Rfam assigns this 135-nucleotide RNA from Loxodonta africana to the family "Small nucleolar RNA SNORA9".
The sequence is in the family's curated seed alignment.
From the family's description: ACA9 is a member of the H/ACA class of snoRNA that guide the sites of modification of uridines to pseudouridines.
Its family is annotated with nucleolus and RNA processing in the Gene Ontology.
The family's RNA type in Rfam is H/ACA-box small nucleolar RNA.

[Rfam]
Nucleotides: 135
Stems, first nucleotide, its partner, number of pairs: 003060006018044003023038002026035002071128005086114001090110002093107001095105001
Number, partner (000 for none) and nucleotide at each position: 001000u002000g003060g004059c005058a006057a007056g008055c009000c010000u011000u012000c013000c014000a015000g016000c017000a018044u019043g020042u021000u022000u023038g024037g025000a026035u027034c028000u029000g030000g031000g032000g033000u034027g035026a036000c037024u038023c039000c040000u041000g042020g043019u044018a045000u046000u047000c048000c049000u050000g051000c052000a053000g054000u055008g056007c057006u058005u059004g060003c061000c062000a063000g064000a065000g066000u067000g068000u069000u070000c071128u072127g073126a074125a075124g076000u077000g078000g079000u080000u081000u082000g083000a084000g085000a086114c087000c088000u089000g090110g091109c092000u093107c094000c095105g096000u097000c098000c099000c100000u101000u102000g103000u104000u105095u106000a107093g108000a109091g110090c111000a112000c113000a114086g115000c116000c117000a118000c119000a120000g121000g122000c123000a124075u125074u126073u127072c128071a129000g130000a131000c132000a133000g134000u135000u